RNA sequence: CAAGGGGCGACCCUUGGGAGAGAAGAAGCAAUAGCGAAAUCGUGGCCUGACGAACAGAAACCUAAUACAAAGGCGUAUCAAGCGGACAAGCUGGCUAAAGGCAGAGAAGUUCCCAAAGGCAACCAUAACCUUGAUGCGUAAAUUAGGCAGGUAAACGAUGAAAGAUGUAUGGC
Numbered sequence: 001c002a003a004g005g006g007g008c009g010a011c012c013c014u015u016g017g018g019a020g021a022g023a024a025g026a027a028g029c030a031a032u033a034g035c036g037a038a039a040u041c042g043u044g045g046c047c048u049g050a051c052g053a054a055c056a057g058a059a060a061c062c063u064a065a066u067a068c069a070a071a072g073g074c075g076u077a078u079c080a081a082g083c084g085g086a087c088a089a090g091c092u093g094g095c096u097a098a099a100g101g102c103a104g105a106g107a108a109g110u111u112c113c114c115a116a117a118g119g120c121a122a123c124c125a126u127a128a129c130c131u132u133g134a135u136g137c138g139u140a141a142a143u144u145a146g147g148c149a150g151g152u153a154a155a156c157g158a159u160g161a162a163a164g165a166u167g168u169a170u171g172g173c
Stems, first nucleotide, its partner, number of pairs: 001016006028173002031170002035164001039159005045152005061147006073139003077135006084112004091104003